[Rfam]
The record is a 92-nucleotide RNA from Strongylocentrotus purpuratus, which matches "mir-184 microRNA precursor family" in Rfam. The base pairs follow the family's consensus structure, which was predicted with PFOLD. The literature on the family includes a 2005 paper in Genes Dev by Chen et al., "The developmental miRNA profiles of zebrafish as determined by small RNA cloning".
RNA sequence: UCUUUUAUCUUUCCUUAUCAUUCUCUUGCCCGGCCGAAUACUAUGUUAUUGAAAUUGCGCUGGACGGAGAACUGAUAAGGGCUUAUAUAAGA
Numbered sequence: 001u002c003u004u005u006u007a008u009c010u011u012u013c014c015u016u017a018u019c020a021u022u023c024u025c026u027u028g029c030c031c032g033g034c035c036g037a038a039u040a041c042u043a044u045g046u047u048a049u050u051g052a053a054a055u056u057g058c059g060c061u062g063g064a065c066g067g068a069g070a071a072c073u074g075a076u077a078a079g080g081g082c083u084u085a086u087a088u089a090a091g092a
Stems, first nucleotide, its partner, number of pairs: 012081009021071006029063002